[Rfam]
RNA sequence: UUUUCAUUCCACGUGCUCUCUCACCGGUCAAAAUGAAGAGAGAAAGCAUGUGAAAUGAAAAGA
Numbered sequence: 001u002u003u004u005c006a007u008u009c010c011a012c013g014u015g016c017u018c019u020c021u022c023a024c025c026g027g028u029c030a031a032a033a034u035g036a037a038g039a040g041a042g043a044a045a046g047c048a049u050g051u052g053a054a055a056u057g058a059a060a061a062g063a
Base pairs, nucleotide, nucleotide: 001061002060003059004058005057006056007055010052012050013049014048015047016046017045019043020042021041022040